[Rfam]
RNA sequence: CUUCUCUCAGCUCUGCUCAGUCACAUUCUUUGUGUGGUUGGUGUAUUUUGAGAGAGAGAGGAAGGCUCUCCUAAUGCACGACAGAUUGGCCCACAGUGGCCUCUCUGUUCCUAGGAGUGCGACAGCU
Number, nucleotide and partner (000 for none) at each position: 001c000002u060003u059004c058005u057006c056007u055008c054009a000010g000011c052012u051013c050014u000015g048016c000017u000018c000019a039020g038021u037022c036023a035024c034025a033026u032027u000028c000029u000030u000031u000032g026033u025034g024035u023036g022037g021038u020039u019040g000041g000042u000043g000044u000045a000046u000047u000048u015049u000050g013051a012052g011053a000054g008055a007056g006057a005058g004059a003060g002061g000062a000063a000064g000065g000066c000067u000068c117069u116070c115071c114072u113073a000074a112075u000076g110077c000078a000079c000080g000081a000082c000083a106084g105085a104086u000087u000088g101089g100090c099091c098092c000093a000094c000095a000096g000097u000098g091099g090100c089101c088102u000103c000104u085105c084106u083107g000108u000109u000110c076111c000112u074113a072114g071115g070116a069117g068118u000119g000120c000121g000122a000123c000124a000125g000126c000127u000
A member of the RNA family "Small nucleolar RNA SNORA64/SNORA10 family" from Tursiops truncatus, 127 nucleotides long. This family belongs to the H/ACA class of small nucleolar RNAs (snoRNAs) which act as guides in the the modification of uridines to pseudouridines. Pairs were carried over by alignment from the consensus structure, which is taken from published work. The match comes from Rfam's covariance-model search (105 bits).